Notes: Shown here is a 325-nucleotide RNA from Dissophora globulifera, a member of the family "RNase MRP". Rfam describes the family as follows. RNase MRP is an enzymatically active ribonucleoprotein with two distinct roles in eukaryotes. In mitochondria it plays a direct role in the initiation of mitochondrial DNA replication. In the nucleus it is involved in precursor rRNA processing, where it cleaves the internal transcribed spacer 1 between 18S and 5.8S rRNAs. Taxonomically the source falls in Dissophora (Eukaryota, Mortierellomycetes, Mortierellales, Mortierellaceae). The family's RNA type in Rfam is ribozyme.
[Rfam]
RNA sequence: GAUCACUCUGCAGAAUCGCACAUUGAAGCAUCACACCACGGCGAGGCUAGUCUUGACUAGACCUCGAACUGUUUAUUGCAAUGCUUUAGGGAAAGUCCCCGGACCUCACGGCAGAAAGUGCCGCCGAUAACCAUUUGGUCAGUCUGAGAUCCACAAGGGAAUGAUUGUUUCGUUGGGCCAAGACGUCUUCGUUCAUUCGAAAGACGGAUGCUCCUUAAUGAUCUGUUCUUGCGGCUCAGUGUUUGUCAUGGUUACAGUCAUGCGAUUGCGGUUGUCUUCCUCGGGAGAUGAUUGUAACUCAACGGGGCUCACUCGCAAUUGUGAU
Numbered sequence: 001g002a003u004c005a006c007u008c009u010g011c012a013g014a015a016u017c018g019c020a021c022a023u024u025g026a027a028g029c030a031u032c033a034c035a036c037c038a039c040g041g042c043g044a045g046g047c048u049a050g051u052c053u054u055g056a057c058u059a060g061a062c063c064u065c066g067a068a069c070u071g072u073u074u075a076u077u078g079c080a081a082u083g084c085u086u087u088a089g090g091g092a093a094a095g096u097c098c099c100c101g102g103a104c105c106u107c108a109c110g111g112c113a114g115a116a117a118g119u120g121c122c123g124c125c126g127a128u129a130a131c132c133a134u135u136u137g138g139u140c141a142g143u144c145u146g147a148g149a150u151c152c153a154c155a156a157g158g159g160a161a162u163g164a165u166u167g168u169u170u171c172g173u174u175g176g177g178c179c180a181a182g183a184c185g186u187c188u189u190c191g192u193u194c195a196u197u198c199g200a201a202a203g204a205c206g207g208a209u210g211c212u213c214c215u216u217a218a219u220g221a222u223c224u225g226u227u228c229u230u231g232c233g234g235c236u237c238a239g240u241g242u243u244u245g246u247c248a249u250g251g252u253u254a255c256a257g258u259c260a261u262g263c264g265a266u267u268g269c270g271g272u273u274g275u276c277u278u279c280c281u282c283g284g285g286a287g288a289u290g291a292u293u294g295u296a297a298c299u300c301a302a303c304g305g306g307g308c309u310c311a312c313u314c315g316c317a318a319u320u321g322u323g324a325u
Stems, first nucleotide, its partner, number of pairs: 002325005009317003014267006023089007041069001094309002097307004110122004124142001126140003144239003154234001157232001159230001163228002166225001177219001206214003269294010